Shown here is a 121-nucleotide sequence from Caballeronia novacaledonica, a member of the family "Betaproteobacteria-1 RNA".
RNA sequence: CGCCAGCGCGGACGGGUGUGACCGGUGGCGCGCUGGGGAGAUCCGCACCACGGGGAUGGGACCUGAGAAGCGGACACGCUGGCGAAGCUAGAGGCGUGGGACCCGAAAUAGUCUGGCGGAG
Numbered sequence: 001c002g003c004c005a006g007c008g009c010g011g012a013c014g015g016g017u018g019u020g021a022c023c024g025g026u027g028g029c030g031c032g033c034u035g036g037g038g039a040g041a042u043c044c045g046c047a048c049c050a051c052g053g054g055g056a057u058g059g060g061a062c063c064u065g066a067g068a069a070g071c072g073g074a075c076a077c078g079c080u081g082g083c084g085a086a087g088c089u090a091g092a093g094g095c096g097u098g099g100g101a102c103c104c105g106a107a108a109u110a111g112u113c114u115g116g117c118g119g120a121g
Base pairs, nucleotide, nucleotide: 001038003036004035005034006033007032008031009030010029025051026050027049028048042074043073044072045071046070060102062100063099075098076097077096078095079094080093087117088116089115090114091113092112